[Rfam]
RNA sequence: GGUCUGGUCGAGAAGCUGCUUCGUAGUAUACAAACGGUUUUAACCUUUAAACUAUGGGGAAAGUCUCUGUGCAAUCUUCGCCGAAAGGGCGCUCGGGAAAUCCGUUGAGGCUUAGGGCUCUAAUUUGUGCGUAGUACUUUUGGAGUCCUAGGUCACCUGUGCCGUUUCAGCAUUAGGUAAUGCAGCUGAUGCAUAGCAUUUACAAAAUAGAGCUUAUCCACGAACCAGAC
Numbered sequence: 001g002g003u004c005u006g007g008u009c010g011a012g013a014a015g016c017u018g019c020u021u022c023g024u025a026g027u028a029u030a031c032a033a034a035c036g037g038u039u040u041u042a043a044c045c046u047u048u049a050a051a052c053u054a055u056g057g058g059g060a061a062a063g064u065c066u067c068u069g070u071g072c073a074a075u076c077u078u079c080g081c082c083g084a085a086a087g088g089g090c091g092c093u094c095g096g097g098a099a100a101u102c103c104g105u106u107g108a109g110g111c112u113u114a115g116g117g118c119u120c121u122a123a124u125u126u127g128u129g130c131g132u133a134g135u136a137c138u139u140u141u142g143g144a145g146u147c148c149u150a151g152g153u154c155a156c157c158u159g160u161g162c163c164g165u166u167u168c169a170g171c172a173u174u175a176g177g178u179a180a181u182g183c184a185g186c187u188g189a190u191g192c193a194u195a196g197c198a199u200u201u202a203c204a205a206a207a208u209a210g211a212g213c214u215u216a217u218c219c220a221c222g223a224a225c226c227a228g229a230c
Base pairs, nucleotide, nucleotide: 002230003229004228005227006226007225008224009222010221014187015186016185017184018183019182021057022056023055024054025053026052027051037044038043061215062214063213065212066211067210068209079091080090081089082088092107096103097102109154110153111152113150114149115148116147117146118145119144120143121142122141127137128136129135130134189199190198191197192196
Dot-bracket structure: .(((((((((...((((((.(((((((.........((....))......)))))))...[[[.[[[[..........((((.....))))(...((....))...).(((.((((((((((....((((...))))...)))))))))).)))...........................)))))).((((...)))).........]]]]]]].....)).)))))))
A member of the RNA family "RNase MRP" from Cervus hanglu, 230 nucleotides long.
Pairs were carried over by alignment from the consensus structure, which is taken from published work.
Clan: RNaseP clan.
The match comes from Rfam's covariance-model search (82 bits).
RNase MRP is an enzymatically active ribonucleoprotein with two distinct roles in eukaryotes. In mitochondria it plays a direct role in the initiation of mitochondrial DNA replication. In the nucleus it is involved in precursor rRNA processing, where it cleaves the internal transcribed spacer 1 between 18S and 5.8S rRNAs.
Lineage of the source: Eukaryota > Dipnotetrapodomorpha > Amniota > Eutheria > Cervus hanglu.
Rfam links the family to the GO terms ribonuclease MRP activity, rRNA processing and ribonuclease MRP complex.